[Rfam]
RNA sequence: GCCGGUCCUCGGUAGUGGCUCCCGGGUCGAACCCGGGGGCUUCGAUCGAAGACCGGC
Number, nucleotide and partner (000 for none) at each position: 001g057002c056003c055004g054005g053006u052007c051008c000009u049010c048011g047012g046013u045014a000015g000016u000017g041018g040019c039020u038021c037022c036023c035024g034025g033026g032027u031028c000029g000030a000031a027032c026033c025034c024035g023036g022037g021038g020039g019040c018041u017042u000043c000044g000045a013046u012047c011048g010049a009050a000051g007052a006053c005054c004055g003056g002057c001
RNA: Actino-pnp RNA